[Rfam]
Rfam assigns this 107-nucleotide RNA from Burkholderia sp. WAC0059 to the family "Burkholderia sRNA 1". About the family: Identified by RNA-seq, RACE and Northern blot. Strongly expressed in biofilm. Taxonomically the source falls in Burkholderia (Bacteria, Betaproteobacteria, Burkholderiales, Burkholderiaceae). It is annotated as a small RNA.

RNA sequence: AGUUCGAUGCACUGCUGAAUUUGCAGGUGGAGAACGAGGAGACAACUGAGGCAUAUAAAUGCCCGGACGAAGAGCGCUGUUGGAUUGAUAUCCAACAGCGCUUUUUG
Dot-bracket structure: .((((..(.((((((.(...).)).)))).))))).....(....(((.(((((....)))))))).)..((((((((((((((......))))))))))))))...